[Rfam]
RNA: Bacterial large signal recognition particle RNA
RNA sequence: CCGUGCUAGACGGGGAGGUAGCGGUGCCCUGUAACUCGCAAUCCGCUGUAGCGGGGUUGAACUCCUGCCUAGCGGUGCAGUCAGUGUAAGGUCUGGCUUUUACACGUGGUGUUGAGAGUCGGGUCCUUCGCAAUGAGAGCUUGUGAAUCCGGUCAGGUCCGGAAGGAAGCAGCCGUAAGCAAGAUGCCUCAUGUGCCGAAGGGUUACCUAACUUGAGCUAACGAUAAGAGUACGCUUGGACUGCUGCAUCAAUAGCAGGUGCACGG
Numbered sequence: 001c002c003g004u005g006c007u008a009g010a011c012g013g014g015g016a017g018g019u020a021g022c023g024g025u026g027c028c029c030u031g032u033a034a035c036u037c038g039c040a041a042u043c044c045g046c047u048g049u050a051g052c053g054g055g056g057u058u059g060a061a062c063u064c065c066u067g068c069c070u071a072g073c074g075g076u077g078c079a080g081u082c083a084g085u086g087u088a089a090g091g092u093c094u095g096g097c098u099u100u101u102a103c104a105c106g107u108g109g110u111g112u113u114g115a116g117a118g119u120c121g122g123g124u125c126c127u128u129c130g131c132a133a134u135g136a137g138a139g140c141u142u143g144u145g146a147a148u149c150c151g152g153u154c155a156g157g158u159c160c161g162g163a164a165g166g167a168a169g170c171a172g173c174c175g176u177a178a179g180c181a182a183g184a185u186g187c188c189u190c191a192u193g194u195g196c197c198g199a200a201g202g203g204u205u206a207c208c209u210a211a212c213u214u215g216a217g218c219u220a221a222c223g224a225u226a227a228g229a230g231u232a233c234g235c236u237u238g239g240a241c242u243g244c245u246g247c248a249u250c251a252a253u254a255g256c257a258g259g260u261g262c263a264c265g266g
Base pairs, nucleotide, nucleotide: 001266002265003264004263005262006261009058010057011056012030013029014028015027017025019023035055036054037053038052039051064259065258066257067256068255070254071253074250075249076248077247078246082243083242084241085240087238088237089236090235094232095231098229099228100227101226102225106222107221108219109218110217116214117213118212119211121209122208123207124206125202126201127200128199129198130197131193132192134191135190136189137188140183141182142181143180144179150175151174152173153172158167159166160165